[Rfam]
RNA sequence: UUAAAACUAGCGACAGAGAAAAGUAAGAAAAUCCAUGCUAUACAGAGAAUUUAUCCCAUUUGGCUGAAAGGAUAAAGAUAGUCAUAUUUUCCGAAAAGACACUCUCGAGGUUUCUUGUUGAAAACAGUAAACAAGAACGUAUUCAGGCGUUAACUGACUUAAGUGAGGACUUAUUAAUAGUUCUAAUUAGGGUGGUACCACGGGUGUAAAUAAACUCUCGUCCCUUGU
Numbered sequence: 001u002u003a004a005a006a007c008u009a010g011c012g013a014c015a016g017a018g019a020a021a022a023g024u025a026a027g028a029a030a031a032u033c034c035a036u037g038c039u040a041u042a043c044a045g046a047g048a049a050u051u052u053a054u055c056c057c058a059u060u061u062g063g064c065u066g067a068a069a070g071g072a073u074a075a076a077g078a079u080a081g082u083c084a085u086a087u088u089u090u091c092c093g094a095a096a097a098g099a100c101a102c103u104c105u106c107g108a109g110g111u112u113u114c115u116u117g118u119u120g121a122a123a124a125c126a127g128u129a130a131a132c133a134a135g136a137a138c139g140u141a142u143u144c145a146g147g148c149g150u151u152a153a154c155u156g157a158c159u160u161a162a163g164u165g166a167g168g169a170c171u172u173a174u175u176a177a178u179a180g181u182u183c184u185a186a187u188u189a190g191g192g193u194g195g196u197a198c199c200a201c202g203g204g205u206g207u208a209a210a211u212a213a214a215c216u217c218u219c220g221u222c223c224c225u226u227g228u
Base pairs, nucleotide, nucleotide: 007110008109015105016104017103018102027091028090029089030088031087038081039080040079051075052074053073054072055071056070113136114135115134116133117132118131119130138149139148140147166184167183168182169181170180171179189225190224191223192222200221201220202219203218204217
The family of this 228-nucleotide RNA from Listeria innocua is "T-box leader". The sequence is in the family's curated seed alignment. Lineage of the source: Bacteria > Bacillota > Bacilli > Listeriaceae > Listeria. The base pairs follow the family's consensus structure, which is taken from published work. A reference for the family is Grundy et al. (1994), "Interaction between the acceptor end of tRNA and the T box stimulates antitermination in the Bacillus subtilis tyrS gene: a new role for the discriminator base", J Bacteriol.